[Rfam]
Background
A member of the RNA family "U12 minor spliceosomal RNA" from Neotoma lepida, 150 nucleotides long. The literature on the family includes a 1997 paper in Trends Biochem Sci by Tarn and Steitz, "Pre-mRNA splicing: the discovery of a new spliceosome doubles the challenge". Pairs were carried over by alignment from the consensus structure. Rfam links the family to the GO terms pre-mRNA branch point binding, mRNA branch site recognition and U12 snRNP. Clan: U2 clan.
RNA sequence: GUUCCUUUUCUUAUGAGUAAGGAAAAUAAUGAUUCGGAGUGAUGCCCGAGUCCUCACUGCUAAUGUGAGAAGAAUUUUUGAGCGGGUAAAGGUUGUCUCCUAAGGCAACCCGCCUACUUUGCGGGAUGCCUGGGUACAGUAGCCUGACCG
Numbered sequence: 001g002u003u004c005c006u007u008u009u010c011u012u013a014u015g016a017g018u019a020a021g022g023a024a025a026a027u028a029a030u031g032a033u034u035c036g037g038a039g040u041g042a043u044g045c046c047c048g049a050g051u052c053c054u055c056a057c058u059g060c061u062a063a064u065g066u067g068a069g070a071a072g073a074a075u076u077u078u079u080g081a082g083c084g085g086g087u088a089a090a091g092g093u094u095g096u097c098u099c100c101u102a103a104g105g106c107a108a109c110c111c112g113c114c115u116a117c118u119u120u121g122c123g124g125g126a127u128g129c130c131u132g133g134g135u136a137c138a139g140u141a142g143c144c145u146g147a148c149c150g
Base pairs, nucleotide, nucleotide: 004022005021006020007019031052032051033050034049035048036047037046053069054068055067056066057065083150084149085148087146090145091144092143093142094141095140096139099134100133103131104130105129106128107127109125110124111123112122113121